[Rfam]
RNA sequence: GGGAAGGGACGACCCUUCGACUGCAUCCAACGCGGGACGGCCCGC
Numbered sequence: 001g002g003g004a005a006g007g008g009a010c011g012a013c014c015c016u017u018c019g020a021c022u023g024c025a026u027c028c029a030a031c032g033c034g035g036g037a038c039g040g041c042c043c044g045c
Base pairs, nucleotide, nucleotide: 003018004017005016006015007014008013032045033044034043035042036041
Rfam assigns this 45-nucleotide sequence from Gemmobacter lutimaris to the family "Guanidine-II riboswitch aptamer (mini-ykkC)". A reference for the family is Weinberg et al. (2007), "Identification of 22 candidate structured RNAs in bacteria using the CMfinder comparative genomics pipeline", Nucleic Acids Res. It scores 37 bits against the family's covariance model. Simpler in structure and has fewer highly conserved nucleotide positions than the ykkC-yxkD leader.